[Rfam]
RNA: c-di-AMP riboswitch aptamer (ydaO/yuaA leader)
Organism: Streptomyces sp. Amel2xC10
RNA sequence: UCGAGCGGAACGCCGAAUCCUGCCGCCGCCCGGCACCCACCGAGAACUCAUGGCAGGAGCGGGGGAACCAGGUAAGUCGCCCUACCGAAAUGUCCACGAUGUCCAUGAAAGGACACGAAAACGGACACAACGGUACGGCUCGGGGUGAAGUCGCGUCCGGAGGACGGACGCGGCCGGGCAGCUCCCGCCCGAACCCGACAGCUCACCUCGCAGGCGCCGGAGAGGAACCUC
Numbered sequence: 001u002c003g004a005g006c007g008g009a010a011c012g013c014c015g016a017a018u019c020c021u022g023c024c025g026c027c028g029c030c031c032g033g034c035a036c037c038c039a040c041c042g043a044g045a046a047c048u049c050a051u052g053g054c055a056g057g058a059g060c061g062g063g064g065g066a067a068c069c070a071g072g073u074a075a076g077u078c079g080c081c082c083u084a085c086c087g088a089a090a091u092g093u094c095c096a097c098g099a100u101g102u103c104c105a106u107g108a109a110a111g112g113a114c115a116c117g118a119a120a121a122c123g124g125a126c127a128c129a130a131c132g133g134u135a136c137g138g139c140u141c142g143g144g145g146u147g148a149a150g151u152c153g154c155g156u157c158c159g160g161a162g163g164a165c166g167g168a169c170g171c172g173g174c175c176g177g178g179c180a181g182c183u184c185c186c187g188c189c190c191g192a193a194c195c196c197g198a199c200a201g202c203u204c205a206c207c208u209c210g211c212a213g214g215c216g217c218c219g220g221a222g223a224g225g226a227a228c229c230u231c
Stems, first nucleotide, its partner, number of pairs: 011216004018058008059211006069142001143196003151173009176190004